[Rfam]
Nucleotides: 109
Base pairs, nucleotide, nucleotide: 006065007064008063009062010061015027016026017025018024028055029054030053033051034050035049037046038045041104043102067092068091069090070089
Number, partner (000 for none) and nucleotide at each position: 001000a002000a003000g004000g005000g006065g007064c008063a009062u010061c011000a012000a013000g014000a015027g016026g017025g018024g019000u020000u021000c022000g023000u024018c025017c026016c027015c028055a029054c030053c031000a032000a033051c034050c035049g036000c037046c038045c039000a040000c041104u042000c043102c044000g045038g046037g047000a048000a049035c050034g051033g052000u053030g054029g055028u056000u057000a058000a059000u060000c061010g062009a063008u064007g065006c066000g067092c068091c069090a070089u071000a072000g073000g074000c075000c076000c077000u078000g079000c080000u081000g082000c083000g084000c085000a086000g087000g088000u089070a090069u091068g092067g093000a094000a095000c096000a097000a098000a099000a100000a101000g102043g103000a104041g105000a106000u107000a108000u109000u